[Rfam]
RNA: MISL RNA
Organism: Opitutus sp. GAS368
RNA sequence: GGAUAAUCCCGGGCAACCGGGGAAAGGAGGGCGUUAAUUGGUGACGUCCUCCCCUCAGUGGCGCGAGCCACAGGCAGGCAAAUAUCACCAGUUCCUCUGGACGGUGUCGCAGCCGAUCCAGUAUUGCGACAAAGGAGCUGUGCGACGAGGCGCGAACUCAGAAACCGCGUCCGAGUCGAGUCAGGUCCAAGGCCAGUUUCGGGCCUUGCACUGAUGCAGUUACCCAGAGGGUUUCGGUUGCUACUGUAUAACCAGGACGCAGCGCAGUGUUCCGGUGGGUCCACCCCACCAAAAGGCCCGGCUCUAAAAAGCGGGGCGCGAAAGGGCCACGGCGCAGCGGGGAGCGGGCGAGUCUGGCAAAGCUCGCAAAACCUCCUCCUUGGGGCGGCGCGUAAAACCGCGUCACCCAACCGCAAGUCGAAAGCAACCUGAGAGGUAAGAGGUCAGACCCGUUACAGGGGGCCAACGCCCGGCCAAAAGCCGGGGCCGUCCUCCUGGCAAGGUGCUGGUGCGAAAUGCAGACGUUGCAGGCGUGCCAACACCCGUCCGGCGAGCCACCCAUCGGCAGAUGGAGCCGAACCAGGCGCAGAGGCCUCACUCGAAAGAUUCCGGUGCUGAAAAGACCGGGACGGUCCCGCUAUGAGACCGACACCAUCGCAUGCCGCGGUGAGUAGCGUCGGGAAGCACACGGCCCGCGAAAGCGAGGCGCCCAAUGCUGUGCGAAUGGAGAAGAGUGCGUGGCGAGCACC
Numbered sequence: 001g002g003a004u005a006a007u008c009c010c011g012g013g014c015a016a017c018c019g020g021g022g023a024a025a026g027g028a029g030g031g032c033g034u035u036a037a038u039u040g041g042u043g044a045c046g047u048c049c050u051c052c053c054c055u056c057a058g059u060g061g062c063g064c065g066a067g068c069c070a071c072a073g074g075c076a077g078g079c080a081a082a083u084a085u086c087a088c089c090a091g092u093u094c095c096u097c098u099g100g101a102c103g104g105u106g107u108c109g110c111a112g113c114c115g116a117u118c119c120a121g122u123a124u125u126g127c128g129a130c131a132a133a134g135g136a137g138c139u140g141u142g143c144g145a146c147g148a149g150g151c152g153c154g155a156a157c158u159c160a161g162a163a164a165c166c167g168c169g170u171c172c173g174a175g176u177c178g179a180g181u182c183a184g185g186u187c188c189a190a191g192g193c194c195a196g197u198u199u200c201g202g203g204c205c206u207u208g209c210a211c212u213g214a215u216g217c218a219g220u221u222a223c224c225c226a227g228a229g230g231g232u233u234u235c236g237g238u239u240g241c242u243a244c245u246g247u248a249u250a251a252c253c254a255g256g257a258c259g260c261a262g263c264g265c266a267g268u269g270u271u272c273c274g275g276u277g278g279g280u281c282c283a284c285c286c287c288a289c290c291a292a293a294a295g296g297c298c299c300g301g302c303u304c305u306a307a308a309a310a311g312c313g314g315g316g317c318g319c320g321a322a323a324g325g326g327c328c329a330c331g332g333c334g335c336a337g338c339g340g341g342g343a344g345c346g347g348g349c350g351a352g353u354c355u356g357g358c359a360a361a362g363c364u365c366g367c368a369a370a371a372c373c374u375c376c377u378c379c380u381u382g383g384g385g386c387g388g389c390g391c392g393u394a395a396a397a398c399c400g401c402g403u404c405a406c407c408c409a410a411c412c413g414c415a416a417g418u419c420g421a422a423a424g425c426a427a428c429c430u431g432a433g434a435g436g437u438a439a440g441a442g443g444u445c446a447g448a449c450c451c452g453u454u455a456c457a458g459g460g461g462g463c464c465a466a467c468g469c470c471c472g473g474c475c476a477a478a479a480g481c482c483g484g485g486g487c488c489g490u491c492c493u494c495c496u497g498g499c500a501a502g503g504u505g506c507u508g509g510u511g512c513g514a515a516a517u518g519c520a521g522a523c524g525u526u527g528c529a530g531g532c533g534u535g536c537c538a539a540c541a542c543c544c545g546u547c548c549g550g551c552g553a554g555c556c557a558c559c560c561a562u563c564g565g566c567a568g569a570u571g572g573a574g575c576c577g578a579a580c581c582a583g584g585c586g587c588a589g590a591g592g593c594c595u596c597a598c599u600c601g602a603a604a605g606a607u608u609c610c611g612g613u614g615c616u617g618a619a620a621a622g623a624c625c626g627g628g629a630c631g632g633u634c635c636c637g638c639u640a641u642g643a644g645a646c647c648g649a650c651a652c653c654a655u656c657g658c659a660u661g662c663c664g665c666g667g668u669g670a671g672u673a674g675c676g677u678c679g680g681g682a683a684g685c686a687c688a689c690g691g692c693c694c695g696c697g698a699a700a701g702c703g704a705g706g707c708g709c710c711c712a713a714u715g716c717u718g719u720g721c722g723a724a725u726g727g728a729g730a731a732g733a734g735u736g737c738g739u740g741g742c743g744a745g746c747a748c749c
Stems, first nucleotide, its partner, number of pairs: 008021005026052011059070004089140008102115004107129005143178004149172002151169003161200005184212003188208006215248005222232003236429006274290006297316003301312002339378006348367006389402004433600003440596004456497007469485006505540001507538007545585003549581002554576001556574001559572005607629007615622002630648005637675004653669006684721005689715002691707002694703003734748003